RNA sequence: CUUUCCUCUAUCUGAUAUAGAACACUCAUAUCGAUAAAAUUAUUUGAACCAUUU
Numbered sequence: 001c002u003u004u005c006c007u008c009u010a011u012c013u014g015a016u017a018u019a020g021a022a023c024a025c026u027c028a029u030a031u032c033g034a035u036a037a038a039a040u041u042a043u044u045u046g047a048a049c050c051a052u053u054u
Base pairs, nucleotide, nucleotide: 011034012033014032015031016030017029018028
A member of the RNA family "Plastid-atpF group II-D1 intron" from Coptis chinensis, 54 nucleotides long. The family's consensus secondary structure was predicted with LocARNA. From the family's description: Plastid atpF is a non-coding RNA (ncRNA) recognised in plastids. A search with the family's covariance model found it, with a score of 55 bits. Its family is annotated with Group II intron splicing in the Gene Ontology.